[Rfam]
RNA sequence: CCUUAUUUGGAAUCAAGAUGUUUUGGUUAAGGGAUGCAACACCGCUAUCGAUCAAGGGAUACCUAAGAUAGCCAGUGAACGACCCAGAUCCGAAAUGACGUAAUAAGUCACGAUGCUACAGCUGCUAGGCAUUGAGUAAGGCGAAUGAUAAUACGGUCUGGGAGGUACUACUGAGGUGGAUGUUUUAAGACUCUGCAAAUGAACUUAGAGCACUAACAGUACCGCGUAGGG
Numbered sequence: 001c002c003u004u005a006u007u008u009g010g011a012a013u014c015a016a017g018a019u020g021u022u023u024u025g026g027u028u029a030a031g032g033g034a035u036g037c038a039a040c041a042c043c044g045c046u047a048u049c050g051a052u053c054a055a056g057g058g059a060u061a062c063c064u065a066a067g068a069u070a071g072c073c074a075g076u077g078a079a080c081g082a083c084c085c086a087g088a089u090c091c092g093a094a095a096u097g098a099c100g101u102a103a104u105a106a107g108u109c110a111c112g113a114u115g116c117u118a119c120a121g122c123u124g125c126u127a128g129g130c131a132u133u134g135a136g137u138a139a140g141g142c143g144a145a146u147g148a149u150a151a152u153a154c155g156g157u158c159u160g161g162g163a164g165g166u167a168c169u170a171c172u173g174a175g176g177u178g179g180a181u182g183u184u185u186u187a188a189g190a191c192u193c194u195g196c197a198a199a200u201g202a203a204c205u206u207a208g209a210g211c212a213c214u215a216a217c218a219g220u221a222c223c224g225c226g227u228a229g230g231g
Base pairs, nucleotide, nucleotide: 001032002031003030004029005028007026044072045071046070047069048068049067061177062176063175064174083162084161085160086159087158088157090156091155092154107142108141109140111134112133113132114131115130116129117128164223165222166221167220168219181212182211183210184209185208186207187206188205189204
Overview:
The family of this 231-nucleotide RNA sequence is "PAGEV RNA". The sequence is in the family's curated seed alignment.